Overview: This 113-nucleotide sequence from Aeromicrobium sp. Root344 belongs to the Rfam family "SAM riboswitch aptamer (S box leader)". Its family is annotated with regulation of gene expression in the Gene Ontology. The family's consensus secondary structure is taken from published work.

[Rfam]
RNA sequence: CACUCAUCACGAGGGGUACAGGGACACGGCCCUAUGACGCCCCAGCAACCAGUCGCUCAUCGACCAGGUGCUCAAUCCGUCCCGGACGACAGUCGAUCCGGGAAAGAUGAAAG
Numbered sequence: 001c002a003c004u005c006a007u008c009a010c011g012a013g014g015g016g017u018a019c020a021g022g023g024a025c026a027c028g029g030c031c032c033u034a035u036g037a038c039g040c041c042c043c044a045g046c047a048a049c050c051a052g053u054c055g056c057u058c059a060u061c062g063a064c065c066a067g068g069u070g071c072u073c074a075a076u077c078c079g080u081c082c083c084g085g086a087c088g089a090c091a092g093u094c095g096a097u098c099c100g101g102g103a104a105a106g107a108u109g110a111a112a113g
Base pairs, nucleotide, nucleotide: 001113004110005109006108007107008106013043014042015041016040017039021032022031023030026080027079028078029077044072045071046070047069049068050067052064053063054062076105081102082101083100084099085098086097